This 137-nucleotide sequence from Oryctolagus cuniculus belongs to the Rfam family "Small nucleolar RNA SNORA46".
RNA sequence: AGCACUAUAUUUAAACCUAUGGAUGAGAAUUUUCCUCAUUCUUGGUUACGCUGUAGUGCAAAAGAAAACCUGGCUCCAUCUGUUGCACAGCUUACUUGUACCAUUCUGCUGUUGCUUAAUGGAGUUAAGGAACAUUG
Numbered sequence: 001a002g003c004a005c006u007a008u009a010u011u012u013a014a015a016c017c018u019a020u021g022g023a024u025g026a027g028a029a030u031u032u033u034c035c036u037c038a039u040u041c042u043u044g045g046u047u048a049c050g051c052u053g054u055a056g057u058g059c060a061a062a063a064g065a066a067a068a069c070c071u072g073g074c075u076c077c078a079u080c081u082g083u084u085g086c087a088c089a090g091c092u093u094a095c096u097u098g099u100a101c102c103a104u105u106c107u108g109c110u111g112u113u114g115c116u117u118a119a120u121g122g123a124g125u126u127a128a129g130g131a132a133c134a135u136u137g
Base pairs, nucleotide, nucleotide: 002059003058004057005056006055007054008053009052014047015046016045017044021041022040023039024038025037026036027035069130070129071128072126073125074124075123076122077121081119085115086114087113088111089110090109091108094105

The source organism's lineage runs through Eukaryota, Metazoa, Chordata, Amniota and Oryctolagus.
It is one of the family's seed sequences.
Rfam's curators write: ACA46 is a member of the H/ACA class of snoRNA that guide the sites of modification of uridines to pseudouridines.
Gene Ontology terms of the family: RNA processing and nucleolus.
The family's consensus secondary structure was predicted with RNAfold.